RNA sequence: UAAUUUAAUGUAGUUUCAUAGCGUAUAACCUCAAUAAUAAGGUUUGAGGGUCUCUACUUGGAACCGAUAAAUCCUAACUACGUUAAAAACUUUAUGGUAG
Numbered sequence: 001u002a003a004u005u006u007a008a009u010g011u012a013g014u015u016u017c018a019u020a021g022c023g024u025a026u027a028a029c030c031u032c033a034a035u036a037a038u039a040a041g042g043u044u045u046g047a048g049g050g051u052c053u054c055u056a057c058u059u060g061g062a063a064c065c066g067a068u069a070a071a072u073c074c075u076a077a078c079u080a081c082g083u084u085a086a087a088a089a090c091u092u093u094a095u096g097g098u099a100g
Base pairs, nucleotide, nucleotide: 019085020084021083022082023081024080025079029049030048031047032046033045034044058076060074061073062072